[Rfam]
Guanidine-II riboswitch aptamer (mini-ykkC): a 43-nucleotide sequence from Paraburkholderia ginsengiterrae. NCBI's taxonomy places the organism under Bacteria, Pseudomonadati, Burkholderiales, Burkholderiaceae, Paraburkholderia.
RNA sequence: CCGUAAGGACGGCCUUACGCAUUGCGCCAACGGGGACGGCCCC
Numbered sequence: 001c002c003g004u005a006a007g008g009a010c011g012g013c014c015u016u017a018c019g020c021a022u023u024g025c026g027c028c029a030a031c032g033g034g035g036a037c038g039g040c041c042c043c
Stems, first nucleotide, its partner, number of pairs: 002019007032043004